Nucleotides: 099
Stems, first nucleotide, its partner, number of pairs: 004094005009086003013082002015078001017077001019075001021074003025069006036061004044053003
Number, partner (000 for none) and nucleotide at each position: 001000c002000g003000c004094a005093g006092g007091g008090u009086c010085c011084c012000g013082c014081c015078c016000g017077a018000u019075c020000a021074c022073g023072a024000g025069c026068c027067u028066c029065g030064c031000g032000a033000a034000c035000c036061c037060c038059g039058u040000c041000a042000g043000g044053u045052c046051c047000g048000g049000a050000a051046g052045g053044a054000a055000g056000c057000a058039g059038c060037g061036g062000u063000a064030g065029c066028g067027g068026g069025g070000u071000c072023u073022c074021g075019g076000u077017u078015g079000c080000g081014g082013g083000a084011g085010g086009g087000a088000g089000c090008g091007c092006c093005c094004u095000g096000c097000g098000a099000u
Bacterial small signal recognition particle RNA: a 99-nucleotide sequence from a Myxococcaceae bacterium. From the family's description: The signal recognition particle (SRP) is a universally conserved ribonucleoprotein involved in the co-translational targeting of proteins to membranes. By type it is a non-coding RNA gene. The base pairs follow the family's consensus structure, which is taken from published work. Its Rfam clan is "SRP clan". Rfam links the family to the GO terms signal recognition particle, plasma membrane targeting and SRP-dependent cotranslational protein targeting to membrane, signal sequence recognition. NCBI's taxonomy places the organism under Bacteria, Pseudomonadati, Myxococcales, Cystobacterineae, Myxococcaceae.